[Rfam]
RNA sequence: GAUCCGAUAGUAUGGUAGAAAGAUUCAUAUAUUUCUUUCUACCAUACUAGCUAUUAUUCUUACAAUAAUUUAUUGUAAUGUAACA
Numbered sequence: 001g002a003u004c005c006g007a008u009a010g011u012a013u014g015g016u017a018g019a020a021a022g023a024u025u026c027a028u029a030u031a032u033u034u035c036u037u038u039c040u041a042c043c044a045u046a047c048u049a050g051c052u053a054u055u056a057u058u059c060u061u062a063c064a065a066u067a068a069u070u071u072a073u074u075g076u077a078a079u080g081u082a083a084c085a
Stems, first nucleotide, its partner, number of pairs: 006051001008049016
A member of the RNA family "Plastid-psbM 3UTR RNA" from Rhodamnia argentea, 85 nucleotides long. For this family Rfam cites "Retrograde signaling in plants: A critical review focusing on the GUN pathway and beyond" (Richter et al., Plant Commun, 2023). From the family's description: Plastid psbM is a non-coding RNA (ncRNA) recognised in plastids. It was found in the three prime untranslated region (3UTR) of psbM gene, its 3UTR location suggests a role in transcript maturation. Rfam 15.1 lists 627 matches to the family in 337 species. Pairs were carried over by alignment from the consensus structure, which was predicted with LocARNA. The match comes from Rfam's covariance-model search (70 bits). NCBI's taxonomy places the organism under Eukaryota, Euphyllophyta, Spermatophyta, malvids, Rhodamnia.